[Rfam]
This 131-nucleotide RNA sequence from Candidatus Atribacteria bacterium MT.SAG.1 belongs to the Rfam family "Glycine riboswitch aptamer".

RNA sequence: ACUCUGGAGAGCUUUAUACAAAAAAGCACCGACGGGGCAAUUCCUAAUCUUUAGGAAAACCCAUACAGAGUUUACUAAAAGAAGUAUUUCCUAAUUACAUAGGAAGAAUCUUUCAGGUAAAAGGACAGAGU
Dot-bracket structure: ((((((.....((((.......)))).(((((..(((...((((((.....................................................))))))....))))).))).......))))))
NCBI's taxonomy places the organism under Bacteria, Pseudomonadati, Atribacterota. Its family is annotated with glycine biosynthetic process in the Gene Ontology.